[Rfam]
A member of the RNA family "tRNA" from Tolypothrix tenuis, 74 nucleotides long. Pairs were carried over by alignment from the consensus structure, which is taken from published work. It is annotated as a transfer RNA. The source organism's lineage runs through Bacteria, Cyanobacteriota, Cyanophyceae, Tolypothrix and Tolypothrix tenuis. Rfam describes the family as follows. Transfer RNA (tRNA) molecules are approximately 80 nucleotides in length.
RNA sequence: GGCUCAGUAGCUCAGUUGGUUAGAGCACGGGACUCAUAAGCCUGGGGUCGUCUGUUCAAGUCAGACCUGAGCCA
Dot-bracket structure: (((((((..((((.........)))).((((.........)))).....(((((.......)))))))))))).